RNA sequence: AACGAGCCGGCUCUACCCCCCCGGAGCCGGAACGUAAGACGGCCCCCGCCAUCCCCCCGGCGGGGGCCGUCGUUC
Numbered sequence: 001a002a003c004g005a006g007c008c009g010g011c012u013c014u015a016c017c018c019c020c021c022c023g024g025a026g027c028c029g030g031a032a033c034g035u036a037a038g039a040c041g042g043c044c045c046c047c048g049c050c051a052u053c054c055c056c057c058c059g060g061c062g063g064g065g066g067c068c069g070u071c072g073u074u075c
Base pairs, nucleotide, nucleotide: 002035003034004033007030008029009028010027011026012025013024038071039070040069041068042067043066044065045064046063047062048061049060050059
Shown here is a 75-nucleotide sequence from Murinocardiopsis flavida, a member of the family "6C RNA". The base pairs follow the family's consensus structure, which is taken from published work. The match comes from Rfam's covariance-model search (61 bits). NCBI's taxonomy places the organism under Bacteria, Actinomycetes, Streptosporangiales, Nocardiopsidaceae, Murinocardiopsis.